[Rfam]
RNA sequence: UUUGAGGGGAAUGUUGUCUGGCUCGAGGACUCUUUUCAUAUUGAUCUAUAAUCCCCUAGAUCAACAACCUUCAUAUAUAUAUCUAUAUGUGUAUGUAUAUGUUGCUUGCAUCAACUGCAUACACAGAUCAGGUGAAUUAGUGUCGUCGGACCAGGCUUCAUUCCCCCCAAU
Numbered sequence: 001u002u003u004g005a006g007g008g009g010a011a012u013g014u015u016g017u018c019u020g021g022c023u024c025g026a027g028g029a030c031u032c033u034u035u036u037c038a039u040a041u042u043g044a045u046c047u048a049u050a051a052u053c054c055c056c057u058a059g060a061u062c063a064a065c066a067a068c069c070u071u072c073a074u075a076u077a078u079a080u081a082u083c084u085a086u087a088u089g090u091g092u093a094u095g096u097a098u099a100u101g102u103u104g105c106u107u108g109c110a111u112c113a114a115c116u117g118c119a120u121a122c123a124c125a126g127a128u129c130a131g132g133u134g135a136a137u138u139a140g141u142g143u144c145g146u147c148g149g150a151c152c153a154g155g156c157u158u159c160a161u162u163c164c165c166c167c168c169a170a171u
Stems, first nucleotide, its partner, number of pairs: 002170003006166008016156006024148003
Source information:
mir-166 microRNA precursor family: a 171-nucleotide RNA sequence from Malus baccata. This family represents the plant microRNA (miRNA) precursor mir-166. Lineage of the source: Eukaryota > Streptophytina > Gunneridae > Rosaceae > Malus. On this family, see Reinhart et al., Genes Dev 2002: "MicroRNAs in plants".